[Rfam]
RNA sequence: UUUUAAACGAUGAAAGGGAGAGUACAGUCUCAUUUUCCGUUGAAAGCGAACUGGGGAUGGUGGAAGCCCGGAAAUGGAAGAGACUUGGAAAAUCACCCUCGAGUACUCGAUUCGAAAGCUUGGCAAGUAGAAAAGAGCGAUUCAUCCACGAUACGGAUUUAUGAGCGGGCAAUGAUAAUGUAAUUGUCUAUUUGGGUGGUACCGCGGGAAAACAGUCUUCUCGUCCCUUUU
Numbered sequence: 001u002u003u004u005a006a007a008c009g010a011u012g013a014a015a016g017g018g019a020g021a022g023u024a025c026a027g028u029c030u031c032a033u034u035u036u037c038c039g040u041u042g043a044a045a046g047c048g049a050a051c052u053g054g055g056g057a058u059g060g061u062g063g064a065a066g067c068c069c070g071g072a073a074a075u076g077g078a079a080g081a082g083a084c085u086u087g088g089a090a091a092a093u094c095a096c097c098c099u100c101g102a103g104u105a106c107u108c109g110a111u112u113c114g115a116a117a118g119c120u121u122g123g124c125a126a127g128u129a130g131a132a133a134a135g136a137g138c139g140a141u142u143c144a145u146c147c148a149c150g151a152u153a154c155g156g157a158u159u160u161a162u163g164a165g166c167g168g169g170c171a172a173u174g175a176u177a178a179u180g181u182a183a184u185u186g187u188c189u190a191u192u193u194g195g196g197u198g199g200u201a202c203c204g205c206g207g208g209a210a211a212a213c214a215g216u217c218u219u220c221u222c223g224u225c226c227c228u229u230u231u
Stems, first nucleotide, its partner, number of pairs: 007104002015099004025087002027084004039075003051071005107136002111132003138150002168188006194227003204224007
A member of the RNA family "T-box leader" from Siminovitchia fortis, 231 nucleotides long. It is annotated as a cis-regulatory leader. About the family: Uncharged tRNA acts as the effector for transcription antitermination of genes in the T-box leader family. T-boxes are found upstream of many aminoacyl-tRNA synthetase genes and some amino acid biosynthetic genes usually in Gram-positive bacteria. The anticodon of a specific tRNA base pairs to a specifier sequence within the T-box motif, and the NCCA acceptor tail of the tRNA base pairs to a conserved bulge in the T-box antiterminator hairpin. The match comes from Rfam's covariance-model search (100 bits).